[Rfam]
RNA sequence: GACUUCAUAGUCGGAGUCUUAUGCAGUAAUAACCCACUGCGUACCGGAUAGAACCCGGAUUGGACUUCUUAAAUAGGAGAAAAAAAUG
Numbered sequence: 001g002a003c004u005u006c007a008u009a010g011u012c013g014g015a016g017u018c019u020u021a022u023g024c025a026g027u028a029a030u031a032a033c034c035c036a037c038u039g040c041g042u043a044c045c046g047g048a049u050a051g052a053a054c055c056c057g058g059a060u061u062g063g064a065c066u067u068c069u070u071a072a073a074u075a076g077g078a079g080a081a082a083a084a085a086a087u088g
Base pairs, nucleotide, nucleotide: 001018002017003016004015005014006013020043021042022041023040024039025038026037044058045057046056047055

Shown here is an 88-nucleotide sequence, a member of the family "freshwater-2 RNA".
Rfam's curators put it in the seed alignment.
Rfam classes the family as a cis-regulatory element.